[Rfam]
Description: The record is a 95-nucleotide sequence from Ligilactobacillus agilis, which matches "THF (Tetrahydrofolate) riboswitch aptamer" in Rfam.
RNA sequence: UAAGGGGUAGGCUUAGUUGCGUUACGGGCCAAGGGAACGGAAUGUGGACCUUGGCAGAAAGGCAACGCCGACGUUUCUAGGCCGCAUUCACCAUU
Numbered sequence: 001u002a003a004g005g006g007g008u009a010g011g012c013u014u015a016g017u018u019g020c021g022u023u024a025c026g027g028g029c030c031a032a033g034g035g036a037a038c039g040g041a042a043u044g045u046g047g048a049c050c051u052u053g054g055c056a057g058a059a060a061g062g063c064a065a066c067g068c069c070g071a072c073g074u075u076u077c078u079a080g081g082c083c084g085c086a087u088u089c090a091c092c093a094u095u
Stems, first nucleotide, its partner, number of pairs: 002094001004092002010083007019074004027055001029054006040089005061069003

Its family is annotated with tetrahydrofolate metabolic process in the Gene Ontology.